Small nucleolar RNA SNORD103/SNORD85: an 82-nucleotide RNA from Falco tinnunculus. Pairs were carried over by alignment from the consensus structure. For this family Rfam cites "RNomics: an experimental approach that identifies 201 candidates for novel, small, non-messenger RNAs in mouse" (Huttenhofer et al., EMBO J, 2001). The match comes from Rfam's covariance-model search (62 bits). Taxonomically the source falls in Falco (Eukaryota, Craniata, Teleostomi, Archelosauria).
RNA sequence: UCUGGCUGUGAUGACACUUGCCCUCACUGAGAAUAAUGAUCGGUAAUGAGCCUCACCAUGUGCUCAAAUGAGCUGAGCCAGA
Numbered sequence: 001u002c003u004g005g006c007u008g009u010g011a012u013g014a015c016a017c018u019u020g021c022c023c024u025c026a027c028u029g030a031g032a033a034u035a036a037u038g039a040u041c042g043g044u045a046a047u048g049a050g051c052c053u054c055a056c057c058a059u060g061u062g063c064u065c066a067a068a069u070g071a072g073c074u075g076a077g078c079c080a081g082a
Base pairs, nucleotide, nucleotide: 001082002081003080004079005078006077